[Rfam]
RNA sequence: GCAGCCAUCAAAGGGGCUGCGAAAUGUUUCUUAUCACUUUGCAUAUCACAGCCACCUUUGAUGAGCUGUG
Dot-bracket structure: .....((((((((.(((((.((..(((...............))))).)))))..)))))))).......
The record is a 70-nucleotide RNA sequence from Rhipicephalus microplus, which matches "mir-2 microRNA precursor family" in Rfam. The base pairs follow the family's consensus structure, which was predicted with PFOLD. Rfam links the family to the GO terms miRNA-mediated post-transcriptional gene silencing and RISC complex. It scores 57 bits against the family's covariance model. The source organism's lineage runs through Eukaryota, Bilateria, Panarthropoda, Parasitiformes and Boophilus.